[Rfam]
RNA sequence: AAAUUUUGAAUGCUUUGGAAGACUAGUGAUAUUGUUGUUAUAAGAAUACUCAUCAGACAACAACUCACAGUCUGCCUUAAUAUUCAAAAUG
Numbered sequence: 001a002a003a004u005u006u007u008g009a010a011u012g013c014u015u016u017g018g019a020a021g022a023c024u025a026g027u028g029a030u031a032u033u034g035u036u037g038u039u040a041u042a043a044g045a046a047u048a049c050u051c052a053u054c055a056g057a058c059a060a061c062a063a064c065u066c067a068c069a070g071u072c073u074g075c076c077u078u079a080a081u082a083u084u085c086a087a088a089a090u091g
Stems, first nucleotide, its partner, number of pairs: 002090001004088003008085002011082002014079001017076002020073005026068004032062001034061006
mir-7 microRNA precursor family: a 91-nucleotide sequence from Perca flavescens. The base pairs follow the family's consensus structure, which was predicted with PFOLD. Rfam describes the family as follows. This family represents the microRNA (miRNA) precursor mir-7. Taxonomically the source falls in Perca (Eukaryota, Opisthokonta, Euteleosteomorpha, Ctenosquamata). The family has 132 seed sequences and 2,589 matches in Rfam 15.1. The literature on the family includes a 2001 paper in Science by Lagos-Quintana et al., "Identification of novel genes coding for small expressed RNAs".